[Rfam]
RNA sequence: AAACCAUCCCCGGGGAGCCAGCGAGUCCUUUGCUGGAUAGUGGCUGAGAGGGGCGUGUCGCAGCGCCCGACCCGUUGAACCUGAACUGAUUAACAUCAGCGGAGGGAGUGGGCGGCCUCGUAUU
Numbered sequence: 001a002a003a004c005c006a007u008c009c010c011c012g013g014g015g016a017g018c019c020a021g022c023g024a025g026u027c028c029u030u031u032g033c034u035g036g037a038u039a040g041u042g043g044c045u046g047a048g049a050g051g052g053g054c055g056u057g058u059c060g061c062a063g064c065g066c067c068c069g070a071c072c073c074g075u076u077g078a079a080c081c082u083g084a085a086c087u088g089a090u091u092a093a094c095a096u097c098a099g100c101g102g103a104g105g106g107a108g109u110g111g112g113c114g115g116c117c118u119c120g121u122a123u124u
Stems, first nucleotide, its partner, number of pairs: 007111002010108001011074004017044004051068005080105003086099004